[Rfam]
RNA sequence: GUUGGGAUGUUCUACAGUGGUCUGGGGUGCAAGCUUCAAACCUGUAGUUGUCUAGCGACAGAGUGGUUCAAUUCCACCUUUUCGAC
Numbered sequence: 001g002u003u004g005g006g007a008u009g010u011u012c013u014a015c016a017g018u019g020g021u022c023u024g025g026g027g028u029g030c031a032a033g034c035u036u037c038a039a040a041c042c043u044g045u046a047g048u049u050g051u052c053u054a055g056c057g058a059c060a061g062a063g064u065g066g067u068u069c070a071a072u073u074c075c076a077c078c079u080u081u082u083c084g085a086c
Base pairs, nucleotide, nucleotide: 001086002085003084004083005082006081007080009078012027013026015024016023017022028046029045030044031043033041048061049060050059051058052057063077064076065075066074